[Rfam]
RNA sequence: GGAAGUGUGUGUCUGUAUCGACACGUCUGAACAUCCGAUCGCUAGCAAUAGCACAGCAGAUCUGCUCAGUAGGUGUCACUAUCAGUCUCUCACAUAUGUCUCCCGUUUGCACACUUUGGCCGCACGGUUGAGACAGGGUUUCAGGGAAGGCCCCCUUUAGACAGCGCCGGGGGUUUAGGCCUCGAAUACUGUUUAUUGACACUUCCAUCUAUGGCCCCAUAAGGUGUGGGUUGCCUUCUUUUG
Numbered sequence: 001g002g003a004a005g006u007g008u009g010u011g012u013c014u015g016u017a018u019c020g021a022c023a024c025g026u027c028u029g030a031a032c033a034u035c036c037g038a039u040c041g042c043u044a045g046c047a048a049u050a051g052c053a054c055a056g057c058a059g060a061u062c063u064g065c066u067c068a069g070u071a072g073g074u075g076u077c078a079c080u081a082u083c084a085g086u087c088u089c090u091c092a093c094a095u096a097u098g099u100c101u102c103c104c105g106u107u108u109g110c111a112c113a114c115u116u117u118g119g120c121c122g123c124a125c126g127g128u129u130g131a132g133a134c135a136g137g138g139u140u141u142c143a144g145g146g147a148a149g150g151c152c153c154c155c156u157u158u159a160g161a162c163a164g165c166g167c168c169g170g171g172g173g174u175u176u177a178g179g180c181c182u183c184g185a186a187u188a189c190u191g192u193u194u195a196u197u198g199a200c201a202c203u204u205c206c207a208u209c210u211a212u213g214g215c216c217c218c219a220u221a222a223g224g225u226g227u228g229g230g231u232u233g234c235c236u237u238c239u240u241u242u243g
Base pairs, nucleotide, nucleotide: 001206002205003204004203005202006201007200008199015079016078027069028068029067032064033063037062038061039060040059041057042056043055213235214234215233216230217229218228219227220226
This 243-nucleotide sequence from Oppiella nova belongs to the Rfam family "Arthropod 7SK RNA".
The family's RNA type in Rfam is non-coding RNA gene.
Pairs were carried over by alignment from the consensus structure, which is taken from published work.
Clan: 7SK clan.